A member of the RNA family "Glycine riboswitch aptamer" from Bacillus safensis, 107 nucleotides long.

[Rfam]
RNA sequence: AUGAUGGUAUGGGGAGAGACUUGGCGGUUAUUUUGCACUGGCAGGCGCCGAAGGAGCAAGCUGAAUGAUUCAGUGAAUCUCUCAGGCAAAAGUACUCUUACCGGACG
Numbered sequence: 001a002u003g004a005u006g007g008u009a010u011g012g013g014g015a016g017a018g019a020c021u022u023g024g025c026g027g028u029u030a031u032u033u034u035g036c037a038c039u040g041g042c043a044g045g046c047g048c049c050g051a052a053g054g055a056g057c058a059a060g061c062u063g064a065a066u067g068a069u070u071c072a073g074u075g076a077a078u079c080u081c082u083c084a085g086g087c088a089a090a091a092g093u094a095c096u097c098u099u100a101c102c103g104g105a106c107g
Stems, first nucleotide, its partner, number of pairs: 006102004011097003020045004047087003050083002054081003060074004
Dot-bracket structure: .....((((.(((......((((..................)))).(((((..(((...((((.......))))....))))).))).......))).)))).....

Annotation: Gene Ontology term of the family: glycine biosynthetic process.